[Rfam]
RNA: Small nucleolar RNA Z266
RNA sequence: AAUAUGCAAGUAUGAUGAUUCAAUUAGAUGUAUGAAAGGAGAAAUCCUUGCUGAACUCUAUUUUUUGAGGCAAACUGUCUGACUUGCUUAUU
Numbered sequence: 001a002a003u004a005u006g007c008a009a010g011u012a013u014g015a016u017g018a019u020u021c022a023a024u025u026a027g028a029u030g031u032a033u034g035a036a037a038g039g040a041g042a043a044a045u046c047c048u049u050g051c052u053g054a055a056c057u058c059u060a061u062u063u064u065u066u067g068a069g070g071c072a073a074a075c076u077g078u079c080u081g082a083c084u085u086g087c088u089u090a091u092u
Base pairs, nucleotide, nucleotide: 001092002091003090004089006087007086008085009084010083